[Rfam]
RNA sequence: UGUGUCAGUGAUGAGUUGCACUCUAAGUCGGGUCGCUGUGCAGUGGCGCAGCAGAUCUGUCCUGACUUCCUGUGGAGACAGCCGAUGUGCACAGGGGCCAUCUGAGUCACG
Numbered sequence: 001u002g003u004g005u006c007a008g009u010g011a012u013g014a015g016u017u018g019c020a021c022u023c024u025a026a027g028u029c030g031g032g033u034c035g036c037u038g039u040g041c042a043g044u045g046g047c048g049c050a051g052c053a054g055a056u057c058u059g060u061c062c063u064g065a066c067u068u069c070c071u072g073u074g075g076a077g078a079c080a081g082c083c084g085a086u087g088u089g090c091a092c093a094g095g096g097g098c099c100a101u102c103u104g105a106g107u108c109a110c111g
Base pairs, nucleotide, nucleotide: 004110007107024065026063027062029059030058031057033055034054037050038049039048040047041046
RNA: Small nucleolar RNA SNORD67